[Rfam]
RNA sequence: GUGGGAGGGCCCAGGAGUGGGUAGGGGUGGGGUGGCAGAGCGCCGUCCCGGGGGCGGGGCCGAAGCACGGAGACCGUAACUCCUGCUGCGUCCCCCAG
Numbered sequence: 001g002u003g004g005g006a007g008g009g010c011c012c013a014g015g016a017g018u019g020g021g022u023a024g025g026g027g028u029g030g031g032g033u034g035g036c037a038g039a040g041c042g043c044c045g046u047c048c049c050g051g052g053g054g055c056g057g058g059g060c061c062g063a064a065g066c067a068c069g070g071a072g073a074c075c076g077u078a079a080c081u082c083c084u085g086c087u088g089c090g091u092c093c094c095c096c097a098g
Stems, first nucleotide, its partner, number of pairs: 002097004007093004014089001017086005026081003029077001031075003036070001040068001042066002045060006

This 98-nucleotide RNA sequence from Theropithecus gelada belongs to the Rfam family "mir-1237 microRNA precursor family". A search with the family's covariance model found it, with a score of 70 bits. The family has 3 seed sequences and 18 matches in Rfam 15.1. The family's consensus secondary structure was predicted with RNAalifold. Rfam links the family to the GO terms miRNA-mediated post-transcriptional gene silencing and RISC complex.